[Rfam]
The family of this 129-nucleotide RNA from Vescimonas fastidiosa is "SAM riboswitch aptamer (S box leader)". The base pairs follow the family's consensus structure, which is taken from published work. The family is grouped with related families in Rfam's "SAM clan". The match comes from Rfam's covariance-model search (79 bits).

RNA sequence: ACCUUAUCAAGAGUGGUUGAGGGAUCGGCCCGAUGAAACCACGGCAACCUGCAUUGCAAGGUGCCAAAUCCGACGAGUAUGCUGAAUGUGGAAGUGAUAGUCCCACAUUCGUCCUUCGACAGAUGAGGA
Numbered sequence: 001a002c003c004u005u006a007u008c009a010a011g012a013g014u015g016g017u018u019g020a021g022g023g024a025u026c027g028g029c030c031c032g033a034u035g036a037a038a039c040c041a042c043g044g045c046a047a048c049c050u051g052c053a054u055u056g057c058a059a060g061g062u063g064c065c066a067a068a069u070c071c072g073a074c075g076a077g078u079a080u081g082c083u084g085a086a087u088g089u090g091g092a093a094g095u096g097a098u099a100g101u102c103c104c105a106c107a108u109u110c111g112u113c114c115u116u117c118g119a120c121a122g123a124u125g126a127g128g129a
Stems, first nucleotide, its partner, number of pairs: 002128007013042005021031003025073004043065004048061002050058003069121001074118004